Rfam assigns this 318-nucleotide part of an RNA to the family "Eukaryotic large subunit ribosomal RNA". The sequence is in the family's curated seed alignment.
RNA sequence: GAGUCUAACAUGUGCGCGAGUCAGUGGGUCUUGAACAGGCCCAGAGGCGCAAUGAAAGUGAAGGACGUCCCUAGCCGGCGUCCGCGUUGGGAUCCCGGGACCCAGGUCCCGGGCGCACCAACGGCCCGUCCCACCUGCCACGUCAGCGGGACGGAGCGAGAGCGUACACGUUGGGACCCGAAAGAUGGUGAACUAUGCCUGGGCAGGACGAGGCCAGAGGAAACUCUGGUGGAGGUCCGCAGCGAUUCUGACGUGCAAAUCGAUCGUCAGACCUUGGUAUAGGGGCGAUAGACUAAUCGAACCGUCUAGUAGCUGGUU
Numbered sequence: 001g002a003g004u005c006u007a008a009c010a011u012g013u014g015c016g017c018g019a020g021u022c023a024g025u026g027g028g029u030c031u032u033g034a035a036c037a038g039g040c041c042c043a044g045a046g047g048c049g050c051a052a053u054g055a056a057a058g059u060g061a062a063g064g065a066c067g068u069c070c071c072u073a074g075c076c077g078g079c080g081u082c083c084g085c086g087u088u089g090g091g092a093u094c095c096c097g098g099g100a101c102c103c104a105g106g107u108c109c110c111g112g113g114c115g116c117a118c119c120a121a122c123g124g125c126c127c128g129u130c131c132c133a134c135c136u137g138c139c140a141c142g143u144c145a146g147c148g149g150g151a152c153g154g155a156g157c158g159a160g161a162g163c164g165u166a167c168a169c170g171u172u173g174g175g176a177c178c179c180g181a182a183a184g185a186u187g188g189u190g191a192a193c194u195a196u197g198c199c200u201g202g203g204c205a206g207g208a209c210g211a212g213g214c215c216a217g218a219g220g221a222a223a224c225u226c227u228g229g230u231g232g233a234g235g236u237c238c239g240c241a242g243c244g245a246u247u248c249u250g251a252c253g254u255g256c257a258a259a260u261c262g263a264u265c266g267u268c269a270g271a272c273c274u275u276g277g278u279a280u281a282g283g284g285g286c287g288a289u290a291g292a293c294u295a296a297u298c299g300a301a302c303c304g305u306c307u308a309g310u311a312g313c314u315g316g317u318u
Stems, first nucleotide, its partner, number of pairs: 005174005011168007020048003025043006052059002086122005094113006124157002126154006136145002177316002180313001184306006193282007201274003204270001206238004213230007242267004247263002250261002284294002